Shown here is a 75-nucleotide RNA sequence from Podarcis lilfordi, a member of the family "Small nucleolar RNA SNORD24".
Taxonomically the source falls in Podarcis (Eukaryota, Gnathostomata, Unidentata, Lacertibaenia).
Pairs were carried over by alignment from the consensus structure, which was predicted with PFOLD.
Rfam classes the family as a C/D-box small nucleolar RNA.
On this family, see Hirose and Steitz, Proc Natl Acad Sci U S A 2001: "Position within the host intron is critical for efficient processing of box C/D snoRNAs in mammalian cells".
It scores 83 bits against the family's covariance model.

RNA sequence: AGCAAAUGAUGCAAAAGAAUAUUUGCUAUCUGAGUGAUGCUGCUGACAAUCUUAUCCACCAAGAUCGCUGAUGCU
Numbered sequence: 001a002g003c004a005a006a007u008g009a010u011g012c013a014a015a016a017g018a019a020u021a022u023u024u025g026c027u028a029u030c031u032g033a034g035u036g037a038u039g040c041u042g043c044u045g046a047c048a049a050u051c052u053u054a055u056c057c058a059c060c061a062a063g064a065u066c067g068c069u070g071a072u073g074c075u
Stems, first nucleotide, its partner, number of pairs: 001075004